[Rfam]
RNA sequence: GCGCAGACGGUUCUCCGAGCUUUUGGUCCUACGUCAGUGAAGAUAUGGUCCUUUAGCCGUGGCAAUUUUGCCACCGGGGUGAGCAAAGAAAUGCCCUCACCUCCCUGACUUGGAAAGGUGAUCAUGUCCCAGUUAC
Numbered sequence: 001g002c003g004c005a006g007a008c009g010g011u012u013c014u015c016c017g018a019g020c021u022u023u024u025g026g027u028c029c030u031a032c033g034u035c036a037g038u039g040a041a042g043a044u045a046u047g048g049u050c051c052u053u054u055a056g057c058c059g060u061g062g063c064a065a066u067u068u069u070g071c072c073a074c075c076g077g078g079g080u081g082a083g084c085a086a087a088g089a090a091a092u093g094c095c096c097u098c099a100c101c102u103c104c105c106u107g108a109c110u111u112g113g114a115a116a117g118g119u120g121a122u123c124a125u126g127u128c129c130c131a132g133u134u135a136c
Base pairs, nucleotide, nucleotide: 003130006127012121013120015118016117019057020056021055025051026050028048029047033044034043035042059074060073061072062071063070077102078101079100080099081098082097083096087092103113104112

Molybdenum/Tungsten riboswitch aptamer (Moco RNA motif): a 136-nucleotide RNA sequence from Shewanella algae. It scores 91 bits against the family's covariance model. The family's consensus secondary structure is taken from published work.